The family of this 472-nucleotide part of an RNA from Paracyclopina nana is "Eukaryotic large subunit ribosomal RNA".
NCBI's taxonomy places the organism under Eukaryota, Metazoa, Mandibulata, Allotriocarida, Paracyclopina.
RNA sequence: GGUAGUAGCAAAUACUCCAGAGAGACCCUGGAGGACCGAAGUGGAGAAGGGUUUCGUGUGAACAGCCGUUGAACACGAGUCAGUCGAUCCUAAGGCUUAGGGGAAACCUUAAUCAAGCGUGCGGCGACUUUUCAUUGAGAAACCGCAACAACGCCAAAAGGGAAUUAGGUUCUUAUUCCUAAACCUGGACGUGGAACCGUUCGGAUACCUCGUAUCCGUCGUGGCAACACGACACGACUAGAAGACGCCCUCCGAAGCUCUGGGAAGAGUUUUCUUUUCUGCAUAAGCCGCUGAGGCCCUGGAAUCGUCUCGCACGGCGAACGGGUUUUGGCUUGGCGAAGAGCCUCGCAGUUCUCGCGAGGUCCACGAGUGUUCGGCGGGACCUUGAAAAUUCUAGGGAGGUUACGGCGGACUCACUCCAGCUCGUACCCAUAUCCGCAGCAGGUCUCCAAGGUGAACAGCCUCUGGUCGA
Numbered sequence: 001g002g003u004a005g006u007a008g009c010a011a012a013u014a015c016u017c018c019a020g021a022g023a024g025a026c027c028c029u030g031g032a033g034g035a036c037c038g039a040a041g042u043g044g045a046g047a048a049g050g051g052u053u054u055c056g057u058g059u060g061a062a063c064a065g066c067c068g069u070u071g072a073a074c075a076c077g078a079g080u081c082a083g084u085c086g087a088u089c090c091u092a093a094g095g096c097u098u099a100g101g102g103g104a105a106a107c108c109u110u111a112a113u114c115a116a117g118c119g120u121g122c123g124g125c126g127a128c129u130u131u132u133c134a135u136u137g138a139g140a141a142a143c144c145g146c147a148a149c150a151a152c153g154c155c156a157a158a159a160g161g162g163a164a165u166u167a168g169g170u171u172c173u174u175a176u177u178c179c180u181a182a183a184c185c186u187g188g189a190c191g192u193g194g195a196a197c198c199g200u201u202c203g204g205a206u207a208c209c210u211c212g213u214a215u216c217c218g219u220c221g222u223g224g225c226a227a228c229a230c231g232a233c234a235c236g237a238c239u240a241g242a243a244g245a246c247g248c249c250c251u252c253c254g255a256a257g258c259u260c261u262g263g264g265a266a267g268a269g270u271u272u273u274c275u276u277u278u279c280u281g282c283a284u285a286a287g288c289c290g291c292u293g294a295g296g297c298c299c300u301g302g303a304a305u306c307g308u309c310u311c312g313c314a315c316g317g318c319g320a321a322c323g324g325g326u327u328u329u330g331g332c333u334u335g336g337c338g339a340a341g342a343g344c345c346u347c348g349c350a351g352u353u354c355u356c357g358c359g360a361g362g363u364c365c366a367c368g369a370g371u372g373u374u375c376g377g378c379g380g381g382a383c384c385u386u387g388a389a390a391a392u393u394c395u396a397g398g399g400a401g402g403u404u405a406c407g408g409c410g411g412a413c414u415c416a417c418u419c420c421a422g423c424u425c426g427u428a429c430c431c432a433u434a435u436c437c438g439c440a441g442c443a444g445g446u447c448u449c450c451a452a453g454g455u456g457a458a459c460a461g462c463c464u465c466u467g468g469u470c471g472a
Base pairs, nucleotide, nucleotide: 015033016032017031018030019029020028034470035469036468037467043450044449045448046447049430050429054078055077056076057075058074059073063071064070085426086425087424089161090160094155095154097111100109101108102107120147121146122145123144124143165182166181167180168179169178185422186421187420188419215412216411217410218409219408220231221230222229223228238397239396240395241394242393243392248381249380250379252377253376254375255374256373258372260368261366262365264282266280267279268278287337288336289335290334296326297325298324299323305317306316307315308314344362345361346360347359348358349357436445437444452464453463454462455461